[Rfam]
RNA sequence: CCUCCGCUCUCCCCGCACAGGAGAGUGGAUAGAGGCCCAAGCGCUCUCUGCCCUGACUGCGCGGCGGCCUCCGGUCGACCGGCCUCUGGGCGGGUGCGUGUUCCUGCCGCACGUGGGGCGCCUCCCGCCGCCGGGCCGGCCGAUGAAGCUCCGGGCUGCGGUGCCGGACAGGUUGAGGGUCCUGUCCCGGCGC
Numbered sequence: 001c002c003u004c005c006g007c008u009c010u011c012c013c014c015g016c017a018c019a020g021g022a023g024a025g026u027g028g029a030u031a032g033a034g035g036c037c038c039a040a041g042c043g044c045u046c047u048c049u050g051c052c053c054u055g056a057c058u059g060c061g062c063g064g065c066g067g068c069c070u071c072c073g074g075u076c077g078a079c080c081g082g083c084c085u086c087u088g089g090g091c092g093g094g095u096g097c098g099u100g101u102u103c104c105u106g107c108c109g110c111a112c113g114u115g116g117g118g119c120g121c122c123u124c125c126c127g128c129c130g131c132c133g134g135g136c137c138g139g140c141c142g143a144u145g146a147a148g149c150u151c152c153g154g155g156c157u158g159c160g161g162u163g164c165c166g167g168a169c170a171g172g173u174u175g176a177g178g179g180u181c182c183u184g185u186c187c188c189g190g191c192g193c
Stems, first nucleotide, its partner, number of pairs: 003029004008024005032071005041062001043060002045056002072142006148162003152158002166187007
The family of this 193-nucleotide RNA sequence is "Streptomyces sRNA scr5239".